Annotation: The record is a 255-nucleotide RNA sequence from Paenibacillus sp. KS1, which matches "T-box leader" in Rfam. It scores 115 bits against the family's covariance model. On this family, see Grundy et al., RNA 2000: "tRNA determinants for transcription antitermination of the Bacillus subtilis tyrS gene". From the family's description: Uncharged tRNA acts as the effector for transcription antitermination of genes in the T-box leader family. T-boxes are found upstream of many aminoacyl-tRNA synthetase genes and some amino acid biosynthetic genes usually in Gram-positive bacteria. The anticodon of a specific tRNA base pairs to a specifier sequence within the T-box motif, and the NCCA acceptor tail of the tRNA base pairs to a conserved bulge in the T-box antiterminator hairpin. The family's consensus secondary structure is taken from published work. The family's RNA type in Rfam is cis-regulatory leader.

RNA sequence: UCAACGAUGUUGAUGAAGAGCAAGUACGUAUCAGAUAAUGAGGUUCAGAGAGUCGGUGGAUGCUGUGAACCGAUCCUCACCUGAUGCCGAAUGGGCUUCUGAAUCGCUCCGCUGAAUUGAGUAGGCGUUGCCGGGAUUCUCUCUCCGUUAUCAUGAGAGGAGUAUCGUAUUGAUGGUUGAACCAUCUUGCCGUACUUUAGAGUGAAUCGCUAUUAGCGAUUAAAAAGGUGGUACCACGAAAACCUCGUCCUUUAU
Numbered sequence: 001u002c003a004a005c006g007a008u009g010u011u012g013a014u015g016a017a018g019a020g021c022a023a024g025u026a027c028g029u030a031u032c033a034g035a036u037a038a039u040g041a042g043g044u045u046c047a048g049a050g051a052g053u054c055g056g057u058g059g060a061u062g063c064u065g066u067g068a069a070c071c072g073a074u075c076c077u078c079a080c081c082u083g084a085u086g087c088c089g090a091a092u093g094g095g096c097u098u099c100u101g102a103a104u105c106g107c108u109c110c111g112c113u114g115a116a117u118u119g120a121g122u123a124g125g126c127g128u129u130g131c132c133g134g135g136a137u138u139c140u141c142u143c144u145c146c147g148u149u150a151u152c153a154u155g156a157g158a159g160g161a162g163u164a165u166c167g168u169a170u171u172g173a174u175g176g177u178u179g180a181a182c183c184a185u186c187u188u189g190c191c192g193u194a195c196u197u198u199a200g201a202g203u204g205a206a207u208c209g210c211u212a213u214u215a216g217c218g219a220u221u222a223a224a225a226a227g228g229u230g231g232u233a234c235c236a237c238g239a240a241a242a243c244c245u246c247g248u249c250c251u252u253u254a255u
Stems, first nucleotide, its partner, number of pairs: 007104002015099004028087005041077003052074006107130001110127004132147003205221007225252004236248004
Dot-bracket structure: ......((......((((.........(((((........(((........((((((...........))))))))).....)))))........))))...))..(..((((..........))))..).(((..........))).........................................................(((((((...)))))))...((((.......((((.....))))))))...